[Rfam]
RNA sequence: GCCAAAUGAUGUGAAUUGGAUGGCACUAGCACUCUGUGCAAAGAUGACCUUCAUCUAUCACCCCAUACUGAUGGCU
Number, nucleotide and partner (000 for none) at each position: 001g075002c074003c073004a072005a000006a000007u000008g000009a000010u000011g000012u000013g000014a000015a000016u000017u000018g000019g000020a000021u000022g000023g000024c000025a000026c000027u000028a000029g039030c038031a037032c036033u000034c000035u000036g032037u031038g030039c029040a000041a000042a000043g000044a000045u000046g000047a000048c000049c000050u000051u000052c000053a000054u000055c000056u000057a000058u000059c000060a000061c000062c000063c000064c000065a000066u000067a000068c000069u000070g000071a000072u004073g003074g002075c001076u000
RNA: Small nucleolar RNA SNORD83
Organism: Stercorarius parasiticus